SAM (S-adenosyl methionine) riboswitch aptamer: a 115-nucleotide RNA sequence from Arthrobacter mobilis. A search with the family's covariance model found it, with a score of 97 bits. Taxonomically the source falls in Arthrobacter (Bacteria, Actinomycetes, Micrococcales, Micrococcaceae). The family is grouped with related families in Rfam's "SAM clan".
RNA sequence: GAUCAAGAGCUCCAACGCGCAGCCCUGGCUGGUUGGACGGCAACCCUCUCCCGUGGCGGGGUGCCCCAGGUGAAGAUCCGGCCGCGGCGCAGAAGCGCCGGGGCAAGCACGGCGC
Numbered sequence: 001g002a003u004c005a006a007g008a009g010c011u012c013c014a015a016c017g018c019g020c021a022g023c024c025c026u027g028g029c030u031g032g033u034u035g036g037a038c039g040g041c042a043a044c045c046c047u048c049u050c051c052c053g054u055g056g057c058g059g060g061g062u063g064c065c066c067c068a069g070g071u072g073a074a075g076a077u078c079c080g081g082c083c084g085c086g087g088c089g090c091a092g093a094a095g096c097g098c099c100g101g102g103g104c105a106a107g108c109a110c111g112g113c114g115c
Stems, first nucleotide, its partner, number of pairs: 001078004009038001011037006021030002039065003044061003048056002081104003085100006